[Rfam]
RNA sequence: UCACUGCUGUGCUUUAUGGCUUUCUAUUCCUAUGUGAAUUUCUGUAACAUUUCACGUAGGGGUCAAAGCCAUUGGGUACGGAGUGGA
Numbered sequence: 001u002c003a004c005u006g007c008u009g010u011g012c013u014u015u016a017u018g019g020c021u022u023u024c025u026a027u028u029c030c031u032a033u034g035u036g037a038a039u040u041u042c043u044g045u046a047a048c049a050u051u052u053c054a055c056g057u058a059g060g061g062g063u064c065a066a067a068g069c070c071a072u073u074g075g076g077u078a079c080g081g082a083g084u085g086g087a
Stems, first nucleotide, its partner, number of pairs: 002086001005083001007081008016072008026063012
mir-135 microRNA precursor family: an 87-nucleotide RNA sequence from Scleropages formosus. It scores 75 bits against the family's covariance model. Rfam links the family to the GO terms gene silencing by miRNA and RISC complex.